About this RNA: This 193-nucleotide RNA from Paraburkholderia graminis belongs to the Rfam family "Manganese Mn2+ riboswitch aptamer (yybP-ykoY)". This RNA was originally discovered in E. coli during a large scale screen and was named SraF. The family was later found to exist upstream of related families of protein genes in many bacteria, including the the yybP and ykoK genes in B. subtilis. It scores 97 bits against the family's covariance model. Rfam links the family to the GO term manganese ion binding. Rfam 15.1 lists 1,126 matches to the family in 1,062 species.
[Rfam]
RNA sequence: CCCCGGGUCACUGGGGAGUAGCCUUCCUUCACGCAUCGCGGCAUCGCGGCAUCGCCUGAAGGAGAGCGCGUCAACAUACUUGGCCUGCGGGUCAUGGCGCGUUCGACCGGGUCGGUUUGGCGAGACCAUUGGCGCACUGCUUCGUUCUGGUCGGACGGGUCGCGGUGCGUCAUGGUUCGUCUUACGUCCGACC
Numbered sequence: 001c002c003c004c005g006g007g008u009c010a011c012u013g014g015g016g017a018g019u020a021g022c023c024u025u026c027c028u029u030c031a032c033g034c035a036u037c038g039c040g041g042c043a044u045c046g047c048g049g050c051a052u053c054g055c056c057u058g059a060a061g062g063a064g065a066g067c068g069c070g071u072c073a074a075c076a077u078a079c080u081u082g083g084c085c086u087g088c089g090g091g092u093c094a095u096g097g098c099g100c101g102u103u104c105g106a107c108c109g110g111g112u113c114g115g116u117u118u119g120g121c122g123a124g125a126c127c128a129u130u131g132g133c134g135c136a137c138u139g140c141u142u143c144g145u146u147c148u149g150g151u152c153g154g155a156c157g158g159g160u161c162g163c164g165g166u167g168c169g170u171c172a173u174g175g176u177u178c179g180u181c182u183u184a185c186g187u188c189c190g191a192c193c
Stems, first nucleotide, its partner, number of pairs: 026062006064104010081094005110193004